[Rfam]
RNA sequence: ACUAAUUACAAAACAAAGGGGCAGGUUACCUGCCCUUGCGAUUGAUCACAGGGACCCGGACAGACUAUACGCCGGAUGGUCGUUCCCCAUCGGGCGCGAAAAGAGGUCUCUCAUCAAUCUUGGGGGGUAGCACUGCUACCCUCAUUUUUUUCGGAGUUG
Dot-bracket structure: ...........(((....((((.(.....).))))((.(.(((((..(............(.........(((.(((((.......))))).)))..)............)..)))))....).)).............................))).
A member of the RNA family "sroC RNA" from Mangrovibacter sp. MFB070, 159 nucleotides long. The family's consensus secondary structure was predicted with PFOLD. Rfam describes the family as follows. This family consists of a number of bacterial sroC RNA genes of around 160 bases in length. sroC is found in several Enterobacterial species. It base-pairs with GcvB. This interaction triggers the degradation of GcvB by RNase E, alleviating the GcvB-mediated mRNA repression of other amino acid-related transport and metabolic genes. The family's RNA type in Rfam is small RNA.